A member of the RNA family "Ribosomal protein L19 leader" from Sporolactobacillus shoreae, 41 nucleotides long.
It is annotated as a cis-regulatory leader.
The source organism's lineage runs through Bacteria, Bacillota, Caryophanales, Sporolactobacillaceae and Sporolactobacillus.
A reference for the family is Zengel and Lindahl (1994), "Diverse mechanisms for regulating ribosomal protein synthesis in Escherichia coli", Prog Nucleic Acid Res Mol Biol.
This family is a putative r-protein leader autoregulatory structure found in B. subtilis and other low-GC Gram-positive bacteria. It is located in the 5' untranslated regions of mRNAs encoding ribosomal protein L19 (rplS).
[Rfam]
RNA sequence: ACGAUGUUCCGCUGCGAUCGUUUGGAUCGUAUGAGCAUUUG
Numbered sequence: 001a002c003g004a005u006g007u008u009c010c011g012c013u014g015c016g017a018u019c020g021u022u023u024g025g026a027u028c029g030u031a032u033g034a035g036c037a038u039u040u041g
Base pairs, nucleotide, nucleotide: 003039004038005037006036007035008034009033013031014030015029016028017027018026